This 75-nucleotide RNA sequence from Aquifex aeolicus belongs to the Rfam family "tRNA".
[Rfam]
RNA sequence: GGAGCGGUAGUUCAGCCCGGUCAGAACGCCGGCCUGUCAAGCCGGAGGUCGCGGGUUCAAAUCCCGUCCGCUCCG
Numbered sequence: 001g002g003a004g005c006g007g008u009a010g011u012u013c014a015g016c017c018c019g020g021u022c023a024g025a026a027c028g029c030c031g032g033c034c035u036g037u038c039a040a041g042c043c044g045g046a047g048g049u050c051g052c053g054g055g056u057u058c059a060a061a062u063c064c065c066g067u068c069c070g071c072u073c074c075g
Base pairs, nucleotide, nucleotide: 001074002073003072004071005070006069007068010027011026012025013024029045030044031043032042033041051067052066053065054064055063
A reference for the family is Lowe and Eddy (1997), "tRNAscan-SE: a program for improved detection of transfer RNA genes in genomic sequence", Nucleic Acids Res.